[Rfam]
RNA sequence: UUUGGUCCUCGGUAGUGGUUUCCGGAAUCGGAUAUUCCGUGAACUUCGAUCGAAGAUCCAU
Number, nucleotide and partner (000 for none) at each position: 001u000002u060003u000004g058005g057006u056007c055008c000009u053010c052011g051012g050013u049014a000015g000016u000017g045018g044019u043020u042021u041022c000023c039024g038025g037026a036027a035028u034029c000030g000031g000032a000033u000034a028035u027036u026037c025038c024039g023040u000041g021042a020043a019044c018045u017046u000047c000048g000049a013050u012051c011052g010053a009054a000055g007056a006057u005058c004059c000060a002061u000
RNA: Actino-pnp RNA